[Rfam]
Nucleotides: 174
Base pairs, nucleotide, nucleotide: 010157011156013155017029018028019027031152032151033150034149035148040082041081083138084137085136091115092114118132119131120130121129
Number, partner (000 for none) and nucleotide at each position: 001000g002000a003000a004000u005000g006000a007000c008000g009000a010157g011156c012000a013155c014000a015000c016000a017029u018028c019027u020000u021000g022000g023000a024000a025000c026000g027019a028018g029017g030000a031152c032151g033150g034149g035148g036000g037000a038000c039000c040082c041081a042000c043000c044000c045000u046000u047000u048000c049000c050000g051000c052000a053000a054000g055000g056000a057000a058000g059000a060000a061000c062000g063000g064000a065000c066000g067000u068000c069000g070000a071000c072000a073000g074000a075000c076000g077000c078000c079000c080000u081041u082040g083138g084137g085136g086000u087000u088000a089000a090000g091115u092114c093000c094000g095000g096000u097000c098000g099000c100000c101000g102000c103000a104000c105000g106000g107000c108000g109000a110000u111000c112000g113000u114092g115091a116000c117000c118132g119131a120130g121129c122000a123000c124000c125000u126000c127000u128000c129121g130120c131119u132118c133000g134000a135000a136085c137084c138083c139000g140000a141000c142000a143000g144000c145000u146000g147000a148035c149034c150033u151032c152031g153000c154000a155013g156011g157010c158000g159000c160000g161000u162000g163000g164000a165000g166000a167000g168000a169000g170000g171000u172000u173000a174000u

Rfam assigns this 174-nucleotide RNA sequence from Gordonia polyisoprenivorans to the family "c-di-AMP riboswitch aptamer (ydaO/yuaA leader)". The pairing is the family consensus, mapped onto this sequence.